[Rfam]
RNA sequence: CCCGCCAGGCCUCUUAACAAUGCCCAAAUGUGGAGGGU
Dot-bracket structure: (((.((.(((...........))).......)).))).

Background: The record is a 38-nucleotide RNA, which matches "abiF RNA" in Rfam. Rfam's curators put it in the seed alignment. Actinobacteria, Bacteroidetes, Clostridia, Proteobacteria, one Clostridia phage. By type it is a small RNA.